The family of this 129-nucleotide RNA sequence from Virgibacillus phasianinus is "Ribosomal protein L20 leader". About the family: This family is a putative r-protein leader autoregulatory structure found in B. subtilis and other low-GC Gram-positive bacteria. It is located in the 5' untranslated regions of mRNAs encoding initiation factor 3 followed by ribosomal proteins L35 and L20 (infC-rpmI-rplT). A Rho-independent transcription terminator structure that is probably involved in regulation is included at the 3' end. By type it is a cis-regulatory leader. The family's consensus secondary structure was predicted with CMfinder.
RNA sequence: AAAGACAAGUAGAAGCACCCGCUUCUCACCUGUCCAACGCAUUAAUGUAGUUGGCUGGUUUCUAACUUCUUUAAAUAAAUGAUUAAAGUCGUGUGGGUGCAUGUAUUGUACCUGCACUUUUUUUGUACU
Numbered sequence: 001a002a003a004g005a006c007a008a009g010u011a012g013a014a015g016c017a018c019c020c021g022c023u024u025c026u027c028a029c030c031u032g033u034c035c036a037a038c039g040c041a042u043u044a045a046u047g048u049a050g051u052u053g054g055c056u057g058g059u060u061u062c063u064a065a066c067u068u069c070u071u072u073a074a075a076u077a078a079a080u081g082a083u084u085a086a087a088g089u090c091g092u093g094u095g096g097g098u099g100c101a102u103g104u105a106u107u108g109u110a111c112c113u114g115c116a117c118u119u120u121u122u123u124u125g126u127a128c129u
Stems, first nucleotide, its partner, number of pairs: 011026006028059003036052003039048002092116010